[Rfam]
RNA sequence: UUCUUAUUAAGAGAGGUGGAGGGACAAGGCCCUGCGAAACCUCAGCAACCUUCAGUCUUGCCUAUUAUUGUGCAAAUGCUGAAAAGGUGCUAACUCCAGCUUGUCACAGUGAUCUUUAAAAGGAUUAUGAAUACGACAAGGAAGAUAAGAA
Numbered sequence: 001u002u003c004u005u006a007u008u009a010a011g012a013g014a015g016g017u018g019g020a021g022g023g024a025c026a027a028g029g030c031c032c033u034g035c036g037a038a039a040c041c042u043c044a045g046c047a048a049c050c051u052u053c054a055g056u057c058u059u060g061c062c063u064a065u066u067a068u069u070g071u072g073c074a075a076a077u078g079c080u081g082a083a084a085a086g087g088u089g090c091u092a093a094c095u096c097c098a099g100c101u102u103g104u105c106a107c108a109g110u111g112a113u114c115u116u117u118a119a120a121a122g123g124a125u126u127a128u129g130a131a132u133a134c135g136a137c138a139a140g141g142a143a144g145a146u147a148a149g150a151a
Base pairs, nucleotide, nucleotide: 001151002150003149004148005147006146007145008144013043014042015041016040017039021032022031023030028097029096044091045090046089047088049087050086051083052082053081054080055079056078095143100140101139102138103137104136105135